[Rfam]
RNA sequence: AUACUUACCUGGCAGGGGAGAUACCAUGAUGUGAAGGUGGUUUUCCCAGGGCAAGGCUUAUCCAUUGCACUCACGAUGUGCUGACCCCUGCGAUUUUCCUAUAUGUGGGAAACUCGACUGCAUAACUUAUGGUAGUGGGGUACUGCA
Number, nucleotide and partner (000 for none) at each position: 001a000002u000003a000004c000005u000006u000007a000008c000009c000010u000011g000012g121013c120014a119015g118016g047017g046018g045019a044020g043021a042022u000023a041024c040025c039026a038027u037028g000029a000030u000031g000032u000033g000034a000035a000036g000037g027038u026039g025040g024041u023042u021043u020044u019045c018046c017047c016048a089049g088050g087051g086052c000053a000054a000055g082056g081057c080058u000059u078060a077061u076062c075063c000064a000065u000066u000067g000068c000069a000070c000071u000072c000073a000074c000075g062076a061077u060078g059079u000080g057081c056082u055083g000084a000085c000086c051087c050088c049089u048090g000091c116092g115093a114094u112095u111096u110097u000098c108099c107100u000101a000102u000103a000104u000105g000106u000107g099108g098109g000110a096111a095112a094113c000114u093115c092116g091117a000118c015119u014120g013121c012122a000123u000124a000125a000126c000127u000128u000129a000130u000131g000132g000133u000134a000135g000136u000137g000138g000139g000140g000141u000142a000143c000144u000145g000146c000147a000

A member of the RNA family "U1 spliceosomal RNA" from Pipistrellus kuhlii, 147 nucleotides long.
Its family is annotated with mRNA 5'-splice site recognition, U1 snRNP and pre-mRNA 5'-splice site binding in the Gene Ontology.